[Rfam]
RNA: mir-1302 microRNA precursor family
RNA sequence: UUUGUAGUAUAAGUAUGUUCCAUGCAAUGUUUGGAACAUACUUAUGCUAUGA
Numbered sequence: 001u002u003u004g005u006a007g008u009a010u011a012a013g014u015a016u017g018u019u020c021c022a023u024g025c026a027a028u029g030u031u032u033g034g035a036a037c038a039u040a041c042u043u044a045u046g047c048u049a050u051g052a
Stems, first nucleotide, its partner, number of pairs: 006048007014040003018036004022031001